The record is a 72-nucleotide RNA from Urocitellus parryii, which matches "tRNA" in Rfam.
Lineage of the source: Eukaryota > Deuterostomia > Sciuromorpha > Marmotini > Urocitellus.
RNA sequence: GUGGGUGUGGCUCAGUGGUAGAGCACUUGCCUAGCAGGCAUGAAGCCCUGGGUUCCAUCCCCAGCGCGCGCG
Numbered sequence: 001g002u003g004g005g006u007g008u009g010g011c012u013c014a015g016u017g018g019u020a021g022a023g024c025a026c027u028u029g030c031c032u033a034g035c036a037g038g039c040a041u042g043a044a045g046c047c048c049u050g051g052g053u054u055c056c057a058u059c060c061c062c063a064g065c066g067c068g069c070g071c072g
Base pairs, nucleotide, nucleotide: 001071002070003069005067006066007065010024011023012022013021026042028040029039030038048064049063050062051061052060

Its family is annotated with triplet codon-amino acid adaptor activity in the Gene Ontology.
A search with the family's covariance model found it, with a score of 48 bits.
The family's RNA type in Rfam is transfer RNA.